[Rfam]
RNA sequence: UUGAAUAAGGAACGCUGCGACAGACACCGAUUCUGCUAGGCUUAUUCAAUGAUGUAGCAUAAAACGGCGUUCAUUAUUA
Numbered sequence: 001u002u003g004a005a006u007a008a009g010g011a012a013c014g015c016u017g018c019g020a021c022a023g024a025c026a027c028c029g030a031u032u033c034u035g036c037u038a039g040g041c042u043u044a045u046u047c048a049a050u051g052a053u054g055u056a057g058c059a060u061a062a063a064a065c066g067g068c069g070u071u072c073a074u075u076a077u078u079a
Stems, first nucleotide, its partner, number of pairs: 002048007021035004